[Rfam]
RNA: FMN riboswitch aptamer (RFN element)
Organism: Olsenella sp. HMSC062G07
RNA sequence: ACGCAGUUUCAGGGCGGGGUGAAAGUCCCCACUGGCGGUAAGCGUGCGUCACCGUGUUGCGCGCAAGUCCGCGAACCGCACAGAAAAGAGCGGUUGACCUGGUGAGAUUCCAGGACCAACGGUCACAGUCCGGAUGGAAGAAACGGAGG
Numbered sequence: 001a002c003g004c005a006g007u008u009u010c011a012g013g014g015c016g017g018g019g020u021g022a023a024a025g026u027c028c029c030c031a032c033u034g035g036c037g038g039u040a041a042g043c044g045u046g047c048g049u050c051a052c053c054g055u056g057u058u059g060c061g062c063g064c065a066a067g068u069c070c071g072c073g074a075a076c077c078g079c080a081c082a083g084a085a086a087a088g089a090g091c092g093g094u095u096g097a098c099c100u101g102g103u104g105a106g107a108u109u110c111c112a113g114g115a116c117c118a119a120c121g122g123u124c125a126c127a128g129u130c131c132g133g134a135u136g137g138a139a140g141a142a143a144c145g146g147a148g149g
Base pairs, nucleotide, nucleotide: 004146006144007143008142009141010140017029018028019027031129032128033118034117035072036071037070038069067116068115075094076093077092098114099113100112101111102110120132121131122130